[Rfam]
RNA sequence: GGAUGUGGUGGGUUACCACAGCUGCUAGGACACAGCAGUUAAGAGGGGUUCGACUCCCCCCCUGAACCGGAGGGUUAUCCGGCCCA
Numbered sequence: 001g002g003a004u005g006u007g008g009u010g011g012g013u014u015a016c017c018a019c020a021g022c023u024g025c026u027a028g029g030a031c032a033c034a035g036c037a038g039u040u041a042a043g044a045g046g047g048g049u050u051c052g053a054c055u056c057c058c059c060c061c062c063u064g065a066a067c068c069g070g071a072g073g074g075u076u077a078u079c080c081g082g083c084c085c086a
Stems, first nucleotide, its partner, number of pairs: 005019005012051001020040007045059004060074003067082005

Description: Shown here is an 86-nucleotide RNA sequence from Furovirus sorghi, a member of the family "Tymovirus/Pomovirus/Furovirus tRNA-like 3' UTR element". From the family's description: This family represents a tRNA-like structure found in the 3' UTR of Tymoviruses, Pomoviruses and Furovirus. It scores 65 bits against the family's covariance model. The literature on the family includes a 2014 paper in Nature by Colussi et al., "The structural basis of transfer RNA mimicry and conformational plasticity by a viral RNA". The family's RNA type in Rfam is cis-regulatory element. Rfam links the family to the GO term regulation of translation. Rfam 15.1 lists 38 matches to the family in 28 species.